[Rfam]
Shown here is a 462-nucleotide RNA sequence from Pseudobythopirellula maris, a member of the family "Bacterial RNase P class A". Rfam describes the family as follows. Ribonuclease P (RNase P) is a ubiquitous endoribonuclease, found in archaea, bacteria and eukarya as well as chloroplasts and mitochondria. By type it is a ribozyme.
RNA sequence: GGAGUGGGUCGGGCAGCCGCCGGUUCGCACAACGCGAACGGGAGGAAAGUCCGGGCGCCGCAGGGCAGGGUGGUGGCUAACGCCCACCGGCCGCGAGGCCAGGGAAAGUGCCGCAGAAAACAAACCGCCGAUGGGUGGGGGAGGGGUUAGGGGCUAGAGGCUAGGGGCUAGAAGGGUGUAAACGACUCUUUCGCUAGCCCCUAGUCCCUAACUCCUAGCCCCUCCCCCACCACAGGUAAGGGUGAAAAGGUGCGGUAAGAGCGCACCAGCGACCGGGGUGACCCGGUCGGCUUGGUAAACCCCACCCGGCGCAAGGCCAAGCAGAGAGCAGAGCCGGCCCGGCUCGUGACGACUCUCGGGUAGGCCGCUCGAGGCGGCGAGCAAUCGUCGCCCUAGAGGAAUGGCUGCCACGGCUCGCGCAAGCAAGCCGCACAAGACCCGGCUUACAGACCCACUCCGAGG
Number, nucleotide and partner (000 for none) at each position: 001g458002g457003a456004g455005u454006g453007g452008g451009u450010c449011g447012g409013g408014c407015a406016g405017c404018c403019g000020c042021c041022g000023g039024u038025u037026c036027g035028c034029a000030c000031a000032a000033c000034g028035c027036g026037a025038a024039c023040g000041g021042g020043a000044g000045g000046a000047a445048a444049g443050u000051c442052c441053g440054g439055g438056c311057g310058c309059c308060g000061c000062a000063g345064g344065g343066c342067a000068g307069g306070g305071u304072g303073g087074u086075g085076g084077c000078u000079a000080a000081c000082g000083c000084c076085c075086a074087c073088c102089g100090g099091c098092c097093g000094c000095g000096a000097g092098g091099c090100c089101a000102g088103g302104g301105a000106a000107a000108g300109u299110g296111c295112c294113g000114c000115a000116g000117a000118a000119a000120a000121c000122a000123a000124a000125c241126c240127g237128c236129c235130g000131a000132u232133g231134g230135g000136u000137g000138g000139g000140g000141g000142a000143g000144g000145g000146g000147u000148u000149a000150g000151g000152g000153g000154c000155u000156a000157g000158a000159g000160g000161c000162u000163a000164g000165g000166g000167g000168c000169u000170a000171g000172a000173a000174g000175g000176g000177u000178g000179u000180a000181a000182a000183c000184g000185a000186c000187u000188c000189u000190u000191u000192c000193g000194c000195u000196a000197g000198c000199c000200c000201c000202u000203a000204g000205u000206c000207c000208c000209u000210a000211a000212c000213u000214c000215c000216u000217a000218g000219c000220c000221c000222c000223u000224c000225c000226c000227c000228c000229a000230c134231c133232a132233c000234a000235g129236g128237u127238a000239a000240g126241g125242g000243u000244g000245a000246a000247a000248a000249g267250g266251u265252g264253c263254g262255g000256u000257a000258a000259g000260a000261g000262c254263g253264c252265a251266c250267c249268a000269g291270c289271g288272a287273c286274c285275g284276g283277g282278g000279u000280g000281a000282c277283c276284c275285g274286g273287u272288c271289g270290g000291c269292u000293u000294g112295g111296u110297a000298a000299a109300c108301c104302c103303c072304a071305c070306c069307c068308g059309g058310c057311g056312c000313a000314a000315g366316g365317c364318c363319a000320a000321g000322c000323a000324g357325a356326g355327a354328g353329c000330a000331g000332a000333g000334c000335c000336g350337g000338c348339c000340c346341g000342g066343c065344u064345c063346g340347u000348g338349a000350c336351g000352a000353c328354u327355c326356u325357c324358g000359g000360g000361u000362a000363g318364g317365c316366c315367g000368c000369u000370c000371g000372a000373g392374g391375c390376g389377g388378c387379g386380a385381g000382c000383a000384a000385u380386c379387g378388u377389c376390g375391c374392c373393c000394u000395a000396g000397a000398g000399g000400a000401a000402u000403g018404g017405c016406u015407g014408c013409c012410a000411c000412g000413g000414c000415u000416c000417g000418c000419g000420c000421a000422a000423g000424c000425a000426a000427g000428c000429c000430g000431c000432a000433c000434a000435a000436g000437a000438c055439c054440c053441g052442g051443c049444u048445u047446a000447c011448a000449g010450a009451c008452c007453c006454a005455c004456u003457c002458c001459g000460a000461g000462g000